[Rfam]
Small nucleolar RNA SNORA8: a 134-nucleotide sequence from Callorhinchus milii. The family's consensus secondary structure was predicted with RNAfold. It is annotated as an H/ACA-box small nucleolar RNA. Lineage of the source: Eukaryota > Gnathostomata > Chondrichthyes > Chimaeriformes > Callorhinchus. Its Rfam clan is "SNORA8 clan". Rfam's curators write: ACA8 is a member of the H/ACA class of snoRNA that guide the sites of modification of uridines to pseudouridines.
RNA sequence: UGCAUUCAAUGAUAUCUGCACCCAUCAGAACUUCCUGAUGAGGUGUUCAAAGUAGUGCUAUAUGAUAUCAGGGUCUGGCAUCGUUGGUUUACCUGCUAUCUGUGCUUGUUAACCUAGUAACUGCUGAUACAUGA
Numbered sequence: 001u002g003c004a005u006u007c008a009a010u011g012a013u014a015u016c017u018g019c020a021c022c023c024a025u026c027a028g029a030a031c032u033u034c035c036u037g038a039u040g041a042g043g044u045g046u047u048c049a050a051a052g053u054a055g056u057g058c059u060a061u062a063u064g065a066u067a068u069c070a071g072g073g074u075c076u077g078g079c080a081u082c083g084u085u086g087g088u089u090u091a092c093c094u095g096c097u098a099u100c101u102g103u104g105c106u107u108g109u110u111a112a113c114c115u116a117g118u119a120a121c122u123g124c125u126g127a128u129a130c131a132u133g134a
Stems, first nucleotide, its partner, number of pairs: 002058005016052002018046005024039005061123002066120001068117001070115002077106005